[Rfam]
This 247-nucleotide RNA sequence from Mesobacillus subterraneus belongs to the Rfam family "T-box leader". It scores 100 bits against the family's covariance model. Its family is annotated with tRNA binding in the Gene Ontology. The family's RNA type in Rfam is cis-regulatory leader. Rfam's curators write: Uncharged tRNA acts as the effector for transcription antitermination of genes in the T-box leader family. T-boxes are found upstream of many aminoacyl-tRNA synthetase genes and some amino acid biosynthetic genes usually in Gram-positive bacteria. The anticodon of a specific tRNA base pairs to a specifier sequence within the T-box motif, and the NCCA acceptor tail of the tRNA base pairs to a conserved bulge in the T-box antiterminator hairpin.
RNA sequence: UUAAAAACGAUGACGGAGAAAAGUAGCUUGAAGAUGGCCAUUCAGGGAGAAAAUGCCAAUGACUGAAAGCAUUUUUAUGGAACAGACGAGCGAAGUUCACCUCCAGAGUUGGCAUCGGGACCGCUUUUACAGAAGCGUAAAGAUGCAUCGGCACAAGCCGUUAUCCUAAUGAAGCGAACACGUGAUACAUAAUUGUAUUAUCUGUUAAAAAGGGUGGUACCGCGAUAACCUUAACCUCGUCCCUUUA
Numbered sequence: 001u002u003a004a005a006a007a008c009g010a011u012g013a014c015g016g017a018g019a020a021a022a023g024u025a026g027c028u029u030g031a032a033g034a035u036g037g038c039c040a041u042u043c044a045g046g047g048a049g050a051a052a053a054u055g056c057c058a059a060u061g062a063c064u065g066a067a068a069g070c071a072u073u074u075u076u077a078u079g080g081a082a083c084a085g086a087c088g089a090g091c092g093a094a095g096u097u098c099a100c101c102u103c104c105a106g107a108g109u110u111g112g113c114a115u116c117g118g119g120a121c122c123g124c125u126u127u128u129a130c131a132g133a134a135g136c137g138u139a140a141a142g143a144u145g146c147a148u149c150g151g152c153a154c155a156a157g158c159c160g161u162u163a164u165c166c167u168a169a170u171g172a173a174g175c176g177a178a179c180a181c182g183u184g185a186u187a188c189a190u191a192a193u194u195g196u197a198u199u200a201u202c203u204g205u206u207a208a209a210a211a212g213g214g215u216g217g218u219a220c221c222g223c224g225a226u227a228a229c230c231u232u233a234a235c236c237u238c239g240u241c242c243c244u245u246u247a
Base pairs, nucleotide, nucleotide: 007109008108015104016103017102018101026091027090028089029088030087038080039079040078049076050075051074052073053072054071055070056069112146113145114144115143116142149160150159151158177206178205179204180203182201183200184199185198186197187196188195211244212243213242214241222240223239224238225237